This 180-nucleotide sequence from Terrilactibacillus tamarindi belongs to the Rfam family "Lysine riboswitch aptamer". It scores 123 bits against the family's covariance model. Rfam links the family to the GO term lysine biosynthetic process. The organism belongs to Terrilactibacillus, within Bacteria.
RNA sequence: AUGAGUGAUAGAGGUGCAUGUUUUAAUACUAGAUGAUAAGAGGACGUUUGGGGUUCGAUGACGAUCAUUGAAAGGAAAACAUGCCGAAGUGUAAUCUUACUCAAACAAGGUUACGCUGGACUCGCAGCUGAAUAAGUGCGAGACUGUCACACUUUAAAAGUGUGGAGAACUAUCUUUAGC
Numbered sequence: 001a002u003g004a005g006u007g008a009u010a011g012a013g014g015u016g017c018a019u020g021u022u023u024u025a026a027u028a029c030u031a032g033a034u035g036a037u038a039a040g041a042g043g044a045c046g047u048u049u050g051g052g053g054u055u056c057g058a059u060g061a062c063g064a065u066c067a068u069u070g071a072a073a074g075g076a077a078a079a080c081a082u083g084c085c086g087a088a089g090u091g092u093a094a095u096c097u098u099a100c101u102c103a104a105a106c107a108a109g110g111u112u113a114c115g116c117u118g119g120a121c122u123c124g125c126a127g128c129u130g131a132a133u134a135a136g137u138g139c140g141a142g143a144c145u146g147u148c149a150c151a152c153u154u155u156a157a158a159a160g161u162g163u164g165g166a167g168a169a170c171u172a173u174c175u176u177u178a179g180c
Stems, first nucleotide, its partner, number of pairs: 007174005016084009032069006088117011118145002121142006147165007